[Rfam]
RNA sequence: UGUUAAAAGUUUCAUCCAUUUGUACUGUUAAGAACUGGCUUGGUUGAUAGUUUAAUCAGAUAACGACAUAUGGUAUGCCAGGUGUAACUCAUGUUGACAUAUAAAAACUAGCUUUUAACAGUAGAAUUUGAUGGAAUUUUUAACA
Numbered sequence: 001u002g003u004u005a006a007a008a009g010u011u012u013c014a015u016c017c018a019u020u021u022g023u024a025c026u027g028u029u030a031a032g033a034a035c036u037g038g039c040u041u042g043g044u045u046g047a048u049a050g051u052u053u054a055a056u057c058a059g060a061u062a063a064c065g066a067c068a069u070a071u072g073g074u075a076u077g078c079c080a081g082g083u084g085u086a087a088c089u090c091a092u093g094u095u096g097a098c099a100u101a102u103a104a105a106a107a108c109u110a111g112c113u114u115u116u117a118a119c120a121g122u123a124g125a126a127u128u129u130g131a132u133g134g135a136a137u138u139u140u141u142a143a144c145a
Base pairs, nucleotide, nucleotide: 002144003143004142005141006140007139008138009137010136011135012134013133014132015131016130018128020126021125023123024122025121026120028118029117030116031115032114033113
Annotation
Shown here is a 145-nucleotide RNA sequence from Gossypium raimondii, a member of the family "MIR7502 microRNA precursor family". The base pairs follow the family's consensus structure, which was predicted with RNAalifold. Gene Ontology terms of the family: miRNA-mediated post-transcriptional gene silencing and RISC complex. It is one of the family's seed sequences.